[Rfam]
RNA sequence: UAAGGGAUAGCUGAAAACCUUAAGAAAAGAGUAAGCA
Numbered sequence: 001u002a003a004g005g006g007a008u009a010g011c012u013g014a015a016a017a018c019c020u021u022a023a024g025a026a027a028a029g030a031g032u033a034a035g036c037a
Stems, first nucleotide, its partner, number of pairs: 002021004010036003

Shown here is a 37-nucleotide RNA sequence from Chitinophaga tropicalis, a member of the family "DUF805b RNA". The family's consensus secondary structure is taken from published work.